Overview
Rfam assigns this 75-nucleotide RNA sequence from Eleutherodactylus coqui to the family "Small nucleolar RNA SNORD79". On this family, see Galardi et al., Mol Cell Biol 2002: "Purified box C/D snoRNPs are able to reproduce site-specific 2'-O-methylation of target RNA in vitro". The family's RNA type in Rfam is C/D-box small nucleolar RNA. The match comes from Rfam's covariance-model search (54 bits). Clan: SNORD74 clan. snoRNA U79 or Z22 is found in intron 7 of the gas5 gene in humans and is also present in mice.
RNA sequence: UGCACUGUGAUGAUUUGAUUAAUCAAUGGGAAUCUCUCUGAAUAAGAAUGGAGAAGACCUUUCACUGACUGUGCA
Numbered sequence: 001u002g003c004a005c006u007g008u009g010a011u012g013a014u015u016u017g018a019u020u021a022a023u024c025a026a027u028g029g030g031a032a033u034c035u036c037u038c039u040g041a042a043u044a045a046g047a048a049u050g051g052a053g054a055a056g057a058c059c060u061u062u063c064a065c066u067g068a069c070u071g072u073g074c075a
Stems, first nucleotide, its partner, number of pairs: 001075005007069001